[Rfam]
RNA sequence: UACAUGGAGGAAAUGCCAUGGGUCAGGUGCAGCCUGACGGUCCAAUUGAUGAUUAUUUCCCUGAUUAUCAAUUCGGCUGCGGACGGUCAUACUCCUCAAU
Numbered sequence: 001u002a003c004a005u006g007g008a009g010g011a012a013a014u015g016c017c018a019u020g021g022g023u024c025a026g027g028u029g030c031a032g033c034c035u036g037a038c039g040g041u042c043c044a045a046u047u048g049a050u051g052a053u054u055a056u057u058u059c060c061c062u063g064a065u066u067a068u069c070a071a072u073u074c075g076g077c078u079g080c081g082g083a084c085g086g087u088c089a090u091a092c093u094c095c096u097c098a099a100u
Stems, first nucleotide, its partner, number of pairs: 003020005022038007039078004044073012
Annotation:
folP RNA: a 100-nucleotide sequence. It is annotated as a cis-regulatory element.